L2-Alphaproteobacteria ribosomal protein leader: an 81-nucleotide RNA.
It is one of the family's seed sequences.
It is annotated as a cis-regulatory leader.
The base pairs follow the family's consensus structure, which is taken from published work.
The literature on the family includes a 2020 paper in BMC Microbiol by Eckert and Weinberg, "Discovery of 20 novel ribosomal leader candidates in bacteria and archaea".

RNA sequence: GGGCACCUGCGGACGUAUGUCGAGGGGCCUUUCACAUAGCCCCGGACCCUUUCCGGGGCGCUAGCUAACGGAAGACAGAAA
Numbered sequence: 001g002g003g004c005a006c007c008u009g010c011g012g013a014c015g016u017a018u019g020u021c022g023a024g025g026g027g028c029c030u031u032u033c034a035c036a037u038a039g040c041c042c043c044g045g046a047c048c049c050u051u052u053c054c055g056g057g058g059c060g061c062u063a064g065c066u067a068a069c070g071g072a073a074g075a076c077a078g079a080a081a
Stems, first nucleotide, its partner, number of pairs: 001030004006026003039059007